[Rfam]
The record is a 125-nucleotide RNA sequence from Gossypium mustelinum, which matches "MIR7504 microRNA precursor family" in Rfam. It scores 96 bits against the family's covariance model.

RNA sequence: AAUAGGAUAAUGACAAAUCAGAUUUUUCCUCCUUAUUUUCAGCUUUUUUAGUUGGAUUUGAAUUUUUUUUAGGAGACAAAAAGCUGAAAAUCAGGAGGAAAAAUCUGAUUUGUCAUUCUUCUAUU
Number, nucleotide and partner (000 for none) at each position: 001a125002a124003u123004a122005g121006g120007a119008u000009a117010a116011u115012g114013a113014c112015a111016a110017a109018u108019c107020a106021g105022a104023u103024u102025u101026u100027u099028c000029c097030u096031c095032c094033u093034u000035a091036u090037u089038u088039u087040c000041a085042g084043c000044u000045u081046u080047u079048u078049u000050a000051g000052u000053u000054g000055g000056a000057u000058u000059u000060g000061a000062a000063u000064u000065u000066u000067u000068u000069u000070u000071a000072g000073g000074a000075g000076a000077c000078a048079a047080a046081a045082a000083g000084c042085u041086g000087a039088a038089a037090a036091u035092c000093a033094g032095g031096a030097g029098g000099a027100a026101a025102a024103a023104u022105c021106u020107g019108a018109u017110u016111u015112g014113u013114c012115a011116u010117u009118c000119u007120u006121c005122u004123a003124u002125u001